[Rfam]
RNA sequence: CGCAACCGGUUGACGGUCGCUAUGGUUCGCCAUAGAGGAAAGUCCAGACACCGCAGAGUAGGAUGCCCUUUUGCAAAGAAGGAUACUGUGUCCCAUAAAGUCACAGGAAGGAAAGUGCCACAGAAAUGAUACCGCCUCACUUGUGAGGUAAGGGUGAAAUGGUGAAGUAAGAGCUCACCGUGCUUUUAGCGAGAGCGGAGCAGCAUGGCAAACCCCAUCCGGUGCAAGAUCAAAUAGGGAACAAAGAUGCGACUCGUAUCGUUUUUCUUCGUGAAAUAUAGUUCCGGGUUCUGAUCGCAUAGUCAAAUGACCGUCCAUUUGCGAUUUUCGCAAAAGACAGGAUCUGGCUUACAGCCGGUUGCGCUUU
Numbered sequence: 001c002g003c004a005a006c007c008g009g010u011u012g013a014c015g016g017u018c019g020c021u022a023u024g025g026u027u028c029g030c031c032a033u034a035g036a037g038g039a040a041a042g043u044c045c046a047g048a049c050a051c052c053g054c055a056g057a058g059u060a061g062g063a064u065g066c067c068c069u070u071u072u073g074c075a076a077a078g079a080a081g082g083a084u085a086c087u088g089u090g091u092c093c094c095a096u097a098a099a100g101u102c103a104c105a106g107g108a109a110g111g112a113a114a115g116u117g118c119c120a121c122a123g124a125a126a127u128g129a130u131a132c133c134g135c136c137u138c139a140c141u142u143g144u145g146a147g148g149u150a151a152g153g154g155u156g157a158a159a160u161g162g163u164g165a166a167g168u169a170a171g172a173g174c175u176c177a178c179c180g181u182g183c184u185u186u187u188a189g190c191g192a193g194a195g196c197g198g199a200g201c202a203g204c205a206u207g208g209c210a211a212a213c214c215c216c217a218u219c220c221g222g223u224g225c226a227a228g229a230u231c232a233a234a235u236a237g238g239g240a241a242c243a244a245a246g247a248u249g250c251g252a253c254u255c256g257u258a259u260c261g262u263u264u265u266u267c268u269u270c271g272u273g274a275a276a277u278a279u280a281g282u283u284c285c286g287g288g289u290u291c292u293g294a295u296c297g298c299a300u301a302g303u304c305a306a307a308u309g310a311c312c313g314u315c316c317a318u319u320u321g322c323g324a325u326u327u328u329c330g331c332a333a334a335a336g337a338c339a340g341g342a343u344c345u346g347g348c349u350u351a352c353a354g355c356c357g358g359u360u361g362c363g364c365u366u367u
Stems, first nucleotide, its partner, number of pairs: 001363010012315007020035006040350003044347005049224004056272001058270001061220005067082004084109001086106005110215002115213002117209003132153002134149006161179005180204001181202005186195002228296004238285005264276004
This 367-nucleotide sequence from Lentisphaera araneosa belongs to the Rfam family "Bacterial RNase P class A".
Ribonuclease P (RNase P) is a ubiquitous endoribonuclease, found in archaea, bacteria and eukarya as well as chloroplasts and mitochondria.
It scores 200 bits against the family's covariance model.
The source organism's lineage runs through Bacteria, Pseudomonadati, Lentisphaeria, Lentisphaera and Lentisphaera araneosa.
Gene Ontology terms of the family: ribonuclease P activity, dimeric ribonuclease P complex and tRNA processing.